[Rfam]
RNA sequence: AAGGCAACUUUUUGCCGAGUGAAUCGAUCAUCGAUCUCUCUCUUUUUCCCAGUUGCCUAAAUCAUGUAUUGGCUGUGUGAGGAAUAAUUUGAUCGAUUAAUCGUUGAUAAUAAUCGAUCUUUUCCUCUUUGCUGCUACAUUA
Numbered sequence: 001a002a003g004g005c006a007a008c009u010u011u012u013u014g015c016c017g018a019g020u021g022a023a024u025c026g027a028u029c030a031u032c033g034a035u036c037u038c039u040c041u042c043u044u045u046u047u048c049c050c051a052g053u054u055g056c057c058u059a060a061a062u063c064a065u066g067u068a069u070u071g072g073c074u075g076u077g078u079g080a081g082g083a084a085u086a087a088u089u090u091g092a093u094c095g096a097u098u099a100a101u102c103g104u105u106g107a108u109a110a111u112a113a114u115c116g117a118u119c120u121u122u123u124c125c126u127c128u129u130u131g132c133u134g135c136u137a138c139a140u141u142a
Stems, first nucleotide, its partner, number of pairs: 003057007017042003021038002023035004064140005071133003079127005091119003095115005103108001
Small nucleolar RNA snoR144: a 142-nucleotide RNA from Arabis nemorensis. Pairs were carried over by alignment from the consensus structure, which was predicted with mfold. It is annotated as an H/ACA-box small nucleolar RNA. It scores 152 bits against the family's covariance model. On this family, see Chen and Wu, Nucleic Acids Res 2009: "Mining small RNA sequencing data: a new approach to identify small nucleolar RNAs in Arabidopsis".